[Rfam]
RNA: Hepatitis delta virus ribozyme
RNA sequence: UCGGGUCGGCAUGGCAUCUCCACCUCCCCGCGGUCCGACCUGGGCAUCCGUAGGAGGACGGACGUCCACUCGGAUGGCGAAGGGAGAGCCAGU
Numbered sequence: 001u002c003g004g005g006u007c008g009g010c011a012u013g014g015c016a017u018c019u020c021c022a023c024c025u026c027c028c029c030g031c032g033g034u035c036c037g038a039c040c041u042g043g044g045c046a047u048c049c050g051u052a053g054g055a056g057g058a059c060g061g062a063c064g065u066c067c068a069c070u071c072g073g074a075u076g077g078c079g080a081a082g083g084g085a086g087a088g089c090c091a092g093u
Base pairs, nucleotide, nucleotide: 003041004040005039006038007037008036009035012091013090014089015088017087018086019085022034023033024032026043027042045076046075047074048073049072050071053067054066055065057063